Rfam assigns this 53-nucleotide RNA from Castanea mollissima to the family "Plastid-atpF group II-D1 intron".
About the family: Plastid atpF is a non-coding RNA (ncRNA) recognised in plastids. It has been reported in the intron group II-D1 region of ATP synthase (atpF) genes.
Lineage of the source: Eukaryota > Streptophyta > Pentapetalae > Fagaceae > Castanea.
For this family Rfam cites "Retrograde signaling in plants: A critical review focusing on the GUN pathway and beyond" (Richter et al., Plant Commun, 2023).
Rfam 15.1 lists 1,372 matches to the family in 227 species.

RNA sequence: AAGCUUUUUUUCAAUAUAUAACACUCAUGUUGAUAGAAUGAUUUGAACCCUUU
Numbered sequence: 001a002a003g004c005u006u007u008u009u010u011u012c013a014a015u016a017u018a019u020a021a022c023a024c025u026c027a028u029g030u031u032g033a034u035a036g037a038a039u040g041a042u043u044u045g046a047a048c049c050c051u052u053u
Stems, first nucleotide, its partner, number of pairs: 011033007